[Rfam]
RNA: Bacterial small subunit ribosomal RNA, nucleotides 560 to 906
RNA sequence: GGCGUAAAGCGUCUGUAGGUUGUUUGUUAAGUCUGGCGUUAAAUUUUGGGGCUCAACCCCAAAACGCGUUGGAUACUGGCAGGCUAGAGUUGUGUAGAGGUUAGCGGAAUUCCUUGUGAAGCGGUGAAAUGCGUAGAUAUAAGGAAGAACACCAAGAUGGCGAAGGCAGCUAACUGGACAUAUACUGACACUGAGAGACGAAAGCGUGGGGAGCAAACAGGAUUAGAUACCCUGGUAGUCCACGCCCUAAACGAUGAUCAUUAGCUGAUGGGGAACUCAUCGGCGCAGCUAACGCAUUAAAUGAUCCGCCUGAGUAGUACGUUCGCAAGAAUAAAACUUAAAGGAAU
Numbered sequence: 001g002g003c004g005u006a007a008a009g010c011g012u013c014u015g016u017a018g019g020u021u022g023u024u025u026g027u028u029a030a031g032u033c034u035g036g037c038g039u040u041a042a043a044u045u046u047u048g049g050g051g052c053u054c055a056a057c058c059c060c061a062a063a064a065c066g067c068g069u070u071g072g073a074u075a076c077u078g079g080c081a082g083g084c085u086a087g088a089g090u091u092g093u094g095u096a097g098a099g100g101u102u103a104g105c106g107g108a109a110u111u112c113c114u115u116g117u118g119a120a121g122c123g124g125u126g127a128a129a130u131g132c133g134u135a136g137a138u139a140u141a142a143g144g145a146a147g148a149a150c151a152c153c154a155a156g157a158u159g160g161c162g163a164a165g166g167c168a169g170c171u172a173a174c175u176g177g178a179c180a181u182a183u184a185c186u187g188a189c190a191c192u193g194a195g196a197g198a199c200g201a202a203a204g205c206g207u208g209g210g211g212a213g214c215a216a217a218c219a220g221g222a223u224u225a226g227a228u229a230c231c232c233u234g235g236u237a238g239u240c241c242a243c244g245c246c247c248u249a250a251a252c253g254a255u256g257a258u259c260a261u262u263a264g265c266u267g268a269u270g271g272g273g274a275a276c277u278c279a280u281c282g283g284c285g286c287a288g289c290u291a292a293c294g295c296a297u298u299a300a301a302u303g304a305u306c307c308g309c310c311u312g313a314g315u316a317g318u319a320c321g322u323u324c325g326c327a328a329g330a331a332u333a334a335a336a337c338u339u340a341a342a343g344g345a346a347u
Stems, first nucleotide, its partner, number of pairs: 001310003009307001011199004016193001018192003022084007030077002032073008045063007088186003091182005099175007106150001110146008121132003160167002204245006213239002218234004256306006264284009288295002312339003321332004
Dot-bracket structure: (((.....(.((((.(.(((.(((((((.((((((((((.....(((((((.....)))))))..))))))))..)))))))))...((((((((...((((((((...((((((((...(((......)))......))))))))...).........((....)).)))))))..))))).)))...))))..))))....((((((...((...((((.........))))...))))))))..........((((((..(((((((((...)))))))))...((....)).....)))))))))).(((......((((....))))....)))........